RNase MRP: a 266-nucleotide RNA from Chiloscyllium punctatum. The family's consensus secondary structure is taken from published work. Rfam 15.1 lists 3,510 matches to the family in 2,315 species. Taxonomically the source falls in Chiloscyllium (Eukaryota, Deuterostomia, Gnathostomata, Selachii).
RNA sequence: AGGCAUUCUGAAGACCUGCUUACUAGGCUACCAACGGAGGACGUUAGUUUCUCUUCAAUCUAAACCGCCUAGGGGAAAGUCCCCGGACCCAUGGCAGAGAGUGUCCCGCCUUGAAGCGGUACCCUUCUGCAAACUCCGCCUUGAAAGCGCUAAGAUGUUGUCCACGACGGAGCGCGCGGGCGCAGUUGGGGCAGCUGUCUCAGUCGGAAGUGACGCAGGUAAUGUACAGGGUACAUCAACAGCACGGGGCUCAUUCUCAGAAUGUC
Numbered sequence: 001a002g003g004c005a006u007u008c009u010g011a012a013g014a015c016c017u018g019c020u021u022a023c024u025a026g027g028c029u030a031c032c033a034a035c036g037g038a039g040g041a042c043g044u045u046a047g048u049u050u051c052u053c054u055u056c057a058a059u060c061u062a063a064a065c066c067g068c069c070u071a072g073g074g075g076a077a078a079g080u081c082c083c084c085g086g087a088c089c090c091a092u093g094g095c096a097g098a099g100a101g102u103g104u105c106c107c108g109c110c111u112u113g114a115a116g117c118g119g120u121a122c123c124c125u126u127c128u129g130c131a132a133a134c135u136c137c138g139c140c141u142u143g144a145a146a147g148c149g150c151u152a153a154g155a156u157g158u159u160g161u162c163c164a165c166g167a168c169g170g171a172g173c174g175c176g177c178g179g180g181c182g183c184a185g186u187u188g189g190g191g192c193a194g195c196u197g198u199c200u201c202a203g204u205c206g207g208a209a210g211u212g213a214c215g216c217a218g219g220u221a222a223u224g225u226a227c228a229g230g231g232u233a234c235a236u237c238a239a240c241a242g243c244a245c246g247g248g249g250c251u252c253a254u255u256c257u258c259a260g261a262a263u264g265u266c
Stems, first nucleotide, its partner, number of pairs: 002266010014220006023072006037053005078251002081249004093105004106119003122191002127185004135180004147175004157168004222236006